[Rfam]
Nucleotides: 225
Stems, first nucleotide, its partner, number of pairs: 001207004006202001008200005017068003020064005072189007210225004
Number, partner (000 for none) and nucleotide at each position: 001207c002206g003205c004204u005000c006202g007000c008200g009199g010198c011197c012196a013000g014000a015000c016000u017068c018067g019066g020064g021063c022062c023061c024060g025000g026000g027000g028000g029000a030000u031000c032000a033000u034000c035000c036000g037000g038000c039000g040000c041000u042000c043000g044000c045000g046000c047000c048000g049000g050000u051000g052000c053000a054000c055000u056000c057000c058000g059000c060024c061023g062022g063021g064020c065000u066019c067018c068017g069000g070000g071000c072189c073188a074187g075186c076185a077184u078183c079000g080000g081000c082000c083000c084000g085000c086000g087000g088000c089000g090000g091000g092000g093000g094000a095000c096000a097000a098000a099000g100000g101000c102000g103000c104000c105000g106000g107000g108000a109000a110000c111000g112000u113000g114000g115000c116000u117000c118000c119000c120000u121000a122000g123000g124000g125000a126000g127000u128000g129000u130000u131000a132000u133000a134000g135000c136000c137000c138000g139000g140000c141000g142000c143000g144000c145000c146000a147000u148000g149000c150000c151000c152000c153000g154000c155000g156000g157000c158000g159000g160000g161000c162000c163000g164000a165000g166000g167000u168000g169000c170000g171000c172000g173000c174000g175000u176000c177000c178000g179000c180000a181000a182000g183078g184077a185076u186075g187074c188073u189072g190000g191000c192000g193000u194000a195000a196012u197011g198010g199009c200008c201000a202006c203000c204004a205003g206002c207001g208000a209000c210225c211224c212223g213222u214000c215000u216000u217000g218000a219000a220000a221000c222213a223212c224211g225210g